Notes
A member of the RNA family "Plastid-ycf2 5UTR RNA" from Gossypium stocksii, 75 nucleotides long. About the family: Plastid ycf2 is a non-coding RNA (ncRNA) recognised in plastids. The family's consensus secondary structure was predicted with LocARNA. The organism belongs to Gossypium, within Eukaryota. The match comes from Rfam's covariance-model search (80 bits). For this family Rfam cites "Retrograde signaling in plants: A critical review focusing on the GUN pathway and beyond" (Richter et al., Plant Commun, 2023). The family's RNA type in Rfam is cis-regulatory element.
[Rfam]
RNA sequence: AUGCAUCUAGUAGGAAUUGAAUCUAUGAAUUCGCCAAUUAUGAGUUGGGCAUUUUAACCAUUUAGCCAUGGAUGC
Number, nucleotide and partner (000 for none) at each position: 001a000002u000003g075004c074005a073006u072007c071008u070009a000010g026011u025012a024013g023014g022015a000016a000017u000018u000019g000020a000021a000022u014023c013024u012025a011026u010027g000028a000029a000030u000031u000032c000033g000034c000035c000036a000037a000038u000039u000040a069041u068042g067043a000044g066045u065046u064047g063048g062049g061050c000051a000052u000053u000054u000055u000056a000057a000058c000059c000060a000061u049062u048063u047064a046065g045066c044067c042068a041069u040070g008071g007072a006073u005074g004075c003